[Rfam]
RNA sequence: UUGUAAACCUGAUUGAAAUGUAAAUCCUUUUUUGGAACAAAAAAGAUUGUAAUGGAAAGCAAGGCUACGC
Dot-bracket structure: .........((.((...((...((((..(((((.....))))).))))...))...)).)).........
Numbered sequence: 001u002u003g004u005a006a007a008c009c010u011g012a013u014u015g016a017a018a019u020g021u022a023a024a025u026c027c028u029u030u031u032u033u034g035g036a037a038c039a040a041a042a043a044a045g046a047u048u049g050u051a052a053u054g055g056a057a058a059g060c061a062a063g064g065c066u067a068c069g070c
Stems, first nucleotide, its partner, number of pairs: 010061002013058002018053002023048004029043005
The record is a 70-nucleotide sequence from Pedobacter polaris, which matches "Flavo-1 RNA" in Rfam. The base pairs follow the family's consensus structure, which is taken from published work. NCBI's taxonomy places the organism under Bacteria, Bacteroidota, Sphingobacteriia, Sphingobacteriales, Pedobacter.